[Rfam]
RNA sequence: CCCGGAGUUUCGUAAGGUUUUGAAGGCCUUCGGAAGUGUGGCAUGUAAAUUCAGUAACCCACUGACAGCGUAAAGACGCAAUUUGUUUUCUAAUGUGUAGCUGUCAGUUAUAAACAUCAGUUUAUCGGAAUGUUCGGGUUUUUCCGGUUUCUUCUUAUAAUCGAUUCCGGUAUAGACAGUCCGUUUCGAUACUCAUCUCCAGCGGUUACUUUUUUG
Numbered sequence: 001c002c003c004g005g006a007g008u009u010u011c012g013u014a015a016g017g018u019u020u021u022g023a024a025g026g027c028c029u030u031c032g033g034a035a036g037u038g039u040g041g042c043a044u045g046u047a048a049a050u051u052c053a054g055u056a057a058c059c060c061a062c063u064g065a066c067a068g069c070g071u072a073a074a075g076a077c078g079c080a081a082u083u084u085g086u087u088u089u090c091u092a093a094u095g096u097g098u099a100g101c102u103g104u105c106a107g108u109u110a111u112a113a114a115c116a117u118c119a120g121u122u123u124a125u126c127g128g129a130a131u132g133u134u135c136g137g138g139u140u141u142u143u144c145c146g147g148u149u150u151c152u153u154c155u156u157a158u159a160a161u162c163g164a165u166u167c168c169g170g171u172a173u174a175g176a177c178a179g180u181c182c183g184u185u186u187c188g189a190u191a192c193u194c195a196u197c198u199c200c201a202g203c204g205g206u207u208a209c210u211u212u213u214u215u216g
Stems, first nucleotide, its partner, number of pairs: 001041002008035005014029001016028002053210007061108008077097004123191010138177003
RNA: RT-7 RNA